[Rfam]
Shown here is an 85-nucleotide RNA from Endozoicomonas sp. G2_1, a member of the family "c-di-GMP-I riboswitch aptamer".
RNA sequence: ACCAGAUAAAGGCAAGACAUUCGAAAGGGUGUUACGCAAAGCUACCGGUCUAAGGGCAUAAGCCUAUGACAGCGGAGUUACCUGU
Numbered sequence: 001a002c003c004a005g006a007u008a009a010a011g012g013c014a015a016g017a018c019a020u021u022c023g024a025a026a027g028g029g030u031g032u033u034a035c036g037c038a039a040a041g042c043u044a045c046c047g048g049u050c051u052a053a054g055g056g057c058a059u060a061a062g063c064c065u066a067u068g069a070c071a072g073c074g075g076a077g078u079u080a081c082c083u084g085u
Stems, first nucleotide, its partner, number of pairs: 012037002017032006040079004045075003048070003055064003
Dot-bracket structure: ...........((...((((((....))))))...))..((((.((((((....(((....)))...)))..)))))))......